mir-234 microRNA precursor family: a 64-nucleotide RNA from Angiostrongylus costaricensis. Rfam links the family to the GO terms miRNA-mediated post-transcriptional gene silencing and RISC complex. Pairs were carried over by alignment from the consensus structure, which was predicted with RNAalifold. The literature on the family includes a 2003 paper in Genes Dev by Lim et al., "The microRNAs of Caenorhabditis elegans". Rfam 15.1 lists 45 matches to the family in 42 species. Clan: mir-137 clan.

RNA sequence: GCGAACGGUGUUCAAGGGCCAAUAAUACGCCACAACGAUAUUAUUGCUCGAGAAUACCAUUCGU
Numbered sequence: 001g002c003g004a005a006c007g008g009u010g011u012u013c014a015a016g017g018g019c020c021a022a023u024a025a026u027a028c029g030c031c032a033c034a035a036c037g038a039u040a041u042u043a044u045u046g047c048u049c050g051a052g053a054a055u056a057c058c059a060u061u062c063g064u
Stems, first nucleotide, its partner, number of pairs: 008057006017048003021045007